[Rfam]
Nucleotides: 172
Base pairs, nucleotide, nucleotide: 001016002015003014004013005012006011028172030170031169032168035165036164040159041158042157043156044155045154046150047149048148049147050146062145063144064143065142066141073137074136075135077133078132079131080130081129082128083127085113086112087111088110091106092105093104094103
Number, partner (000 for none) and nucleotide at each position: 001016u002015c003014c004013a005012u006011c007000g008000u009000g010000a011006g012005g013004u014003g015002g016001a017000a018000u019000c020000u021000g022000a023000a024000g025000g026000a027000a028172g029000c030170c031169g032168g033000a034000g035165g036164c037000a038000a039000a040159g041158c042157c043156c044155c045154g046150a047149c048148c049147u050146g051000a052000g053000g054000a055000c056000c057000a058000c059000g060000a061000a062145c063144c064143c065142a066141a067000g068000g069000u070000g071000a072000g073137g074136c075135u076000g077133c078132u079131g080130c081129a082128u083127u084000c085113g086112g087111g088110c089000g090000a091106g092105u093104c094103u095000g096000c097000u098000a099000a100000a101000c102000a103094a104093g105092a106091c107000a108000a109000a110088g111087c112086c113085c114000c115000a116000u117000a118000c119000a120000g121000c122000c123000a124000a125000g126000g127083g128082a129081u130080g131079c132078a133077g134000c135075a136074g137073u138000a139000a140000a141066u142065u143064g144063g145062g146050c147049a148048g149047g150046u151000a152000c153000a154045u155044g156043g157042g158041g159040u160000g161000a162000a163000a164036g165035c166000g167000a168032c169031c170030g171000u172028u

The record is a 172-nucleotide RNA sequence from Alicyclobacillus acidocaldarius, which matches "Group II catalytic intron D1-D4-3" in Rfam. Pairs were carried over by alignment from the consensus structure. It is one of the family's seed sequences.